The record is a 220-nucleotide RNA from Alkaliphilus sp. B6464, which matches "Group II catalytic intron D1-D4-3" in Rfam. On this family, see Chu et al., EMBO J 2001: "Control of branch-site choice by a group II intron".
RNA sequence: AUUAUCGUGAGGUAUUGUCUGAAGGAGAUGCGGAUAAUCGAGAGACCCGUAGGCGAAACAAUAGACCCUAAUACAAUAAGUGUGAAGCACGGCGGCGGGUUAAGUUGGCGACUUUGCGAAAAAUGAGGAAGCCCACUAAAAGACAUUUCUUUUAGACGUCAGACCAAGGAAAUGUGACUUAAAACGUGAUGGUGCAGGGUAUGUUGUGAAGGGAAAUGCG
Numbered sequence: 001a002u003u004a005u006c007g008u009g010a011g012g013u014a015u016u017g018u019c020u021g022a023a024g025g026a027g028a029u030g031c032g033g034a035u036a037a038u039c040g041a042g043a044g045a046c047c048c049g050u051a052g053g054c055g056a057a058a059c060a061a062u063a064g065a066c067c068c069u070a071a072u073a074c075a076a077u078a079a080g081u082g083u084g085a086a087g088c089a090c091g092g093c094g095g096c097g098g099g100u101u102a103a104g105u106u107g108g109c110g111a112c113u114u115u116g117c118g119a120a121a122a123a124u125g126a127g128g129a130a131g132c133c134c135a136c137u138a139a140a141a142g143a144c145a146u147u148u149c150u151u152u153u154a155g156a157c158g159u160c161a162g163a164c165c166a167a168g169g170a171a172a173u174g175u176g177a178c179u180u181a182a183a184a185c186g187u188g189a190u191g192g193u194g195c196a197g198g199g200u201a202u203g204u205u206g207u208g209a210a211g212g213g214a215a216a217u218g219c220g
Base pairs, nucleotide, nucleotide: 001016003014004013005012006011046220048218049217050216054212058207059206060205061204062203064202065200066199067198068197069196087195088194089193090192095187096186097185100182101181102180103179104178105177107133108132109131112127113126114125
Dot-bracket structure: (.((((....)))).).............................(.(((...(...(((((.((((((.................((((....(((..((((((.(((..(((..........)))...)))...........................................))))))..)))....))))))))).))))))....)...))).)
Pairs were carried over by alignment from the consensus structure.